[Rfam]
RNA sequence: CUGUCUCUUGCUUCAACAGUGUGUGGAUAGGACAG
Numbered sequence: 001c002u003g004u005c006u007c008u009u010g011c012u013u014c015a016a017c018a019g020u021g022u023g024u025g026g027a028u029a030g031g032a033c034a035g
Base pairs, nucleotide, nucleotide: 001035002034003033004032006031007030008029010028012027013026014025015024017021

The family of this 35-nucleotide RNA from Molossus molossus is "Iron response element I". NCBI's taxonomy places the organism under Eukaryota, Metazoa, Chordata, Boreoeutheria, Molossus. Gene Ontology term of the family: response to iron ion. By type it is a cis-regulatory element.